[Rfam]
RNA sequence: UCUCUGUGAAAGACAUGGGUAGUGAGAUGUUAAUUUUACUUGUCUCACUACCUUGUCUUUCAUGAAGCA
Numbered sequence: 001u002c003u004c005u006g007u008g009a010a011a012g013a014c015a016u017g018g019g020u021a022g023u024g025a026g027a028u029g030u031u032a033a034u035u036u037u038a039c040u041u042g043u044c045u046c047a048c049u050a051c052c053u054u055g056u057c058u059u060u061c062a063u064g065a066a067g068c069a
Stems, first nucleotide, its partner, number of pairs: 008061008017053003021049009
The family of this 69-nucleotide RNA from Agrilus planipennis is "mir-71 microRNA precursor family". The family has 36 seed sequences and 372 matches in Rfam 15.1. The match comes from Rfam's covariance-model search (70 bits). On this family, see Li et al., BMC Genomics 2009: "Direct sequencing and expression analysis of a large number of miRNAs in Aedes aegypti and a multi-species survey of novel mosquito miRNAs".